[Rfam]
RNA sequence: AUUGUAAUCAAAGCGCCAGGACUACACACGGACGAGAACGUGUAGUUGACGAGGAGAGGGUUUAUCGAGUAUUCGGCGGAUGCCCUCCGGCUGUAGCAUGACAGCCGCUAAGCUUCUGGAGAAAACAGAGAGGCAACUCUCUGCACAAAGCCGGAAGCAGCCAUGCCU
Numbered sequence: 001a002u003u004g005u006a007a008u009c010a011a012a013g014c015g016c017c018a019g020g021a022c023u024a025c026a027c028a029c030g031g032a033c034g035a036g037a038a039c040g041u042g043u044a045g046u047u048g049a050c051g052a053g054g055a056g057a058g059g060g061u062u063u064a065u066c067g068a069g070u071a072u073u074c075g076g077c078g079g080a081u082g083c084c085c086u087c088c089g090g091c092u093g094u095a096g097c098a099u100g101a102c103a104g105c106c107g108c109u110a111a112g113c114u115u116c117u118g119g120a121g122a123a124a125a126c127a128g129a130g131a132g133g134c135a136a137c138u139c140u141c142u143g144c145a146c147a148a149a150g151c152c153g154g155a156a157g158c159a160g161c162c163a164u165g166c167c168u
Base pairs, nucleotide, nucleotide: 020047021046022045023044024043025042026041027040056087057086058085059084060083065076066075067074068073088107089106090105091104092103093102112158113157114156115155116154117153118152126143127142128141129140130139131138132137
Rfam assigns this 168-nucleotide sequence from Halalkalibacter oceani to the family "glmS glucosamine-6-phosphate activated ribozyme aptamer". On this family, see Jansen et al., Nat Struct Mol Biol 2006: "Backbone and nucleobase contacts to glucosamine-6-phosphate in the glmS ribozyme". A search with the family's covariance model found it, with a score of 136 bits. Pairs were carried over by alignment from the consensus structure, which is taken from published work. By type it is a riboswitch.